[Rfam]
RNA sequence: AGUCGGGAGUGCAGGAAUACAAUACCCGUUAGGGGAAUAACUGCGCGGCGCUGUAGACCGUUCCACCCUCCCGACUGCCCGUGU
Numbered sequence: 001a002g003u004c005g006g007g008a009g010u011g012c013a014g015g016a017a018u019a020c021a022a023u024a025c026c027c028g029u030u031a032g033g034g035g036a037a038u039a040a041c042u043g044c045g046c047g048g049c050g051c052u053g054u055a056g057a058c059c060g061u062u063c064c065a066c067c068c069u070c071c072c073g074a075c076u077g078c079c080c081g082u083g084u
Stems, first nucleotide, its partner, number of pairs: 001076009012043003016038001025034003045061004
RNA: sRNA-Xcc1
Organism: Thiospirillum jenense